Rfam assigns this 135-nucleotide sequence from Gossypium gossypioides to the family "MIR7502 microRNA precursor family". A search with the family's covariance model found it, with a score of 72 bits. Lineage of the source: Eukaryota > Streptophyta > Streptophytina > rosids > Gossypium. The family's consensus secondary structure was predicted with RNAalifold. Gene Ontology terms of the family: miRNA-mediated post-transcriptional gene silencing and RISC complex.
[Rfam]
RNA sequence: UAUGAAAAAUUCUAUCCAUCUCUACAAUUAAAAAUUGGUCUUUGUACGUAAAAAUGAGGUUUAUGUGUGUAACUGUCUGGUUAUUCCAUUAGCCACGCCAAUUUUUAACAGUAGAAAUAGAUGAAAUUUUUAAUA
Numbered sequence: 001u002a003u004g005a006a007a008a009a010u011u012c013u014a015u016c017c018a019u020c021u022c023u024a025c026a027a028u029u030a031a032a033a034a035u036u037g038g039u040c041u042u043u044g045u046a047c048g049u050a051a052a053a054a055u056g057a058g059g060u061u062u063a064u065g066u067g068u069g070u071a072a073c074u075g076u077c078u079g080g081u082u083a084u085u086c087c088a089u090u091a092g093c094c095a096c097g098c099c100a101a102u103u104u105u106u107a108a109c110a111g112u113a114g115a116a117a118u119a120g121a122u123g124a125a126a127u128u129u130u131u132a133a134u135a
Stems, first nucleotide, its partner, number of pairs: 002134002005131007013123004018118002021115005028108006